[Rfam]
RNA sequence: CCGCCGGGACGACCCGGCCUUCGAAGAGGCUUCGUCAGGACGACCUGC
Number, nucleotide and partner (000 for none) at each position: 001c000002c000003g018004c017005c016006g015007g014008g013009a000010c000011g000012a000013c008014c007015c006016g005017g004018c003019c000020u000021u000022c000023g000024a000025a000026g000027a000028g000029g000030c000031u000032u000033c000034g000035u000036c047037a046038g045039g044040a000041c000042g000043a000044c039045c038046u037047g036048c000
The record is a 48-nucleotide RNA sequence from Cognatiyoonia koreensis, which matches "Guanidine-II riboswitch aptamer (mini-ykkC)" in Rfam. Pairs were carried over by alignment from the consensus structure, which is taken from published work. Gene Ontology term of the family: regulation of gene expression.